[Rfam]
RNA: Small nucleolar RNA Z159/U59
Organism: Durio zibethinus
RNA sequence: GUCUCUGAUGAUGAUUGAAAUUUAAAAACUUUCGUUCUUAUGAGACACAAAUCGAUGCGGAAUUCCAUAUGGAGACCUGAGCUGAAGAGAC
Numbered sequence: 001g002u003c004u005c006u007g008a009u010g011a012u013g014a015u016u017g018a019a020a021u022u023u024a025a026a027a028a029c030u031u032u033c034g035u036u037c038u039u040a041u042g043a044g045a046c047a048c049a050a051a052u053c054g055a056u057g058c059g060g061a062a063u064u065c066c067a068u069a070u071g072g073a074g075a076c077c078u079g080a081g082c083u084g085a086a087g088a089g090a091c
Stems, first nucleotide, its partner, number of pairs: 003089004
Dot-bracket structure: ..((((...............................................................................))))..